The family of this 403-nucleotide RNA from Tengunoibacter tsumagoiensis is "Bacterial RNase P class A".
[Rfam]
RNA sequence: CAAAGAAAAACAGGUAAUCGCGGACCAGAAGGUCCGAGGAAAGUCCGAGCUCCAUAGAGCGUGGAUGCUGGCUAACGGCCAGUGAGGGUGACCUUAAGGAAAGUGCAACAGAAACAUACCGCCGGUCCGGAUCUCUGGUCUGGAUUGGUAAGGGCGAAAUGGUGAGGUAAGAGCUCACCAGCAGCCAGGUGACUGGCUGGCUGGGCAAACCCCAUCCGGAGCAAGACCAAGCAGAAGGAGUGAUCAGGCGUUUCGAUGCUUGAUCCGCAGGUUGCUCGCCUGUUAACCUUCGGGUUGGUUGCUUGAGGCGGCGGGCAACUGUCGUCCUAGAUAGAUGAUUACCAUCCAUUCUCACCGUAAGGCAGGAUGGAGACAGAACUCGGCUUAUGGUUUUCUUUGGCCU
Numbered sequence: 001c002a003a004a005g006a007a008a009a010a011c012a013g014g015u016a017a018u019c020g021c022g023g024a025c026c027a028g029a030a031g032g033u034c035c036g037a038g039g040a041a042a043g044u045c046c047g048a049g050c051u052c053c054a055u056a057g058a059g060c061g062u063g064g065a066u067g068c069u070g071g072c073u074a075a076c077g078g079c080c081a082g083u084g085a086g087g088g089u090g091a092c093c094u095u096a097a098g099g100a101a102a103g104u105g106c107a108a109c110a111g112a113a114a115c116a117u118a119c120c121g122c123c124g125g126u127c128c129g130g131a132u133c134u135c136u137g138g139u140c141u142g143g144a145u146u147g148g149u150a151a152g153g154g155c156g157a158a159a160u161g162g163u164g165a166g167g168u169a170a171g172a173g174c175u176c177a178c179c180a181g182c183a184g185c186c187a188g189g190u191g192a193c194u195g196g197c198u199g200g201c202u203g204g205g206c207a208a209a210c211c212c213c214a215u216c217c218g219g220a221g222c223a224a225g226a227c228c229a230a231g232c233a234g235a236a237g238g239a240g241u242g243a244u245c246a247g248g249c250g251u252u253u254c255g256a257u258g259c260u261u262g263a264u265c266c267g268c269a270g271g272u273u274g275c276u277c278g279c280c281u282g283u284u285a286a287c288c289u290u291c292g293g294g295u296u297g298g299u300u301g302c303u304u305g306a307g308g309c310g311g312c313g314g315g316c317a318a319c320u321g322u323c324g325u326c327c328u329a330g331a332u333a334g335a336u337g338a339u340u341a342c343c344a345u346c347c348a349u350u351c352u353c354a355c356c357g358u359a360a361g362g363c364a365g366g367a368u369g370g371a372g373a374c375a376g377a378a379c380u381c382g383g384c385u386u387a388u389g390g391u392u393u394u395c396u397u398u399g400g401c402c403u
Base pairs, nucleotide, nucleotide: 001399002398003397004396005395006394008393009392010391011390012388013343014342015341016340017339018338019337021036022035023034024033025032026031041386042385043384045383046382047381048380049379050221051220052219053218057277058276059275060274063217064216065215066214067213068082069081070080071079072078083097084095085094086093087092098212099211103210104209105206106205119153120152121149122148123147124146125145126144127143128142129141130140131139132138161179162178163177164176165175166174181201182199183198184197185196186195187194188193225300226299227298228297234291235290236289237288238287268282269281270280271279272278307326308325309324310323311322312321313320314319
Rfam classes the family as a ribozyme. Taxonomically the source falls in Tengunoibacter (Bacteria, Bacillati, Ktedonobacterales, Dictyobacteraceae). The match comes from Rfam's covariance-model search (285 bits). About the family: Ribonuclease P (RNase P) is a ubiquitous endoribonuclease, found in archaea, bacteria and eukarya as well as chloroplasts and mitochondria.